[Rfam]
The family of this 71-nucleotide sequence from Orthoflavivirus murrayense is "Flavivirus DB element". Gene Ontology term of the family: translation. It is annotated as a cis-regulatory element. The organism belongs to Orthoflavivirus murrayense, within Viruses. The literature on the family includes a 2005 paper in J Virol by Chiu et al., "Control of translation by the 5'- and 3'-terminal regions of the dengue virus genome". Rfam's curators write: This family represents the flavivirus 3' UTR elements DB1 and DB2. These DB elements are thought to be required for efficient translation.
RNA sequence: AGUGGCCCAAGCUCGCCGAAGCUGUAAGGCGGGUGGACGGACUAGAGGUUAGAGGAGACCCCACUCUCAAA
Numbered sequence: 001a002g003u004g005g006c007c008c009a010a011g012c013u014c015g016c017c018g019a020a021g022c023u024g025u026a027a028g029g030c031g032g033g034u035g036g037a038c039g040g041a042c043u044a045g046a047g048g049u050u051a052g053a054g055g056a057g058a059c060c061c062c063a064c065u066c067u068c069a070a071a
Base pairs, nucleotide, nucleotide: 001065002064003063004062005061006040007039011034012033013032014031015030016029017028047060048059049058050057